[Rfam]
RNA: M-box riboswitch aptamer (ykoK leader)
Organism: Paenibacillus sp. J2TS4
RNA sequence: UGAUCCCCUCGUUAGAUGAGGCUCUUGGUUGGAGAGAUGCUGCUGCCCAGGAAAUGUCCAGAGACGCCAACGGGUCGACAGAAAUCAUCGCAGCCGAUGGUUUUGAACGCAGCUGGUAAGCAUCGAAUCCUAUGCCAUACCGUGCUGGAACUCAACCGAUAACUUAU
Numbered sequence: 001u002g003a004u005c006c007c008c009u010c011g012u013u014a015g016a017u018g019a020g021g022c023u024c025u026u027g028g029u030u031g032g033a034g035a036g037a038u039g040c041u042g043c044u045g046c047c048c049a050g051g052a053a054a055u056g057u058c059c060a061g062a063g064a065c066g067c068c069a070a071c072g073g074g075u076c077g078a079c080a081g082a083a084a085u086c087a088u089c090g091c092a093g094c095c096g097a098u099g100g101u102u103u104u105g106a107a108c109g110c111a112g113c114u115g116g117u118a119a120g121c122a123u124c125g126a127a128u129c130c131u132a133u134g135c136c137a138u139a140c141c142g143u144g145c146u147g148g149a150a151c152u153c154a155a156c157c158g159a160u161a162a163c164u165u166a167u
Stems, first nucleotide, its partner, number of pairs: 009159002011156002015152001017150001020146003025142001027140001030137003039113005045075004055066004081104004087098003115130002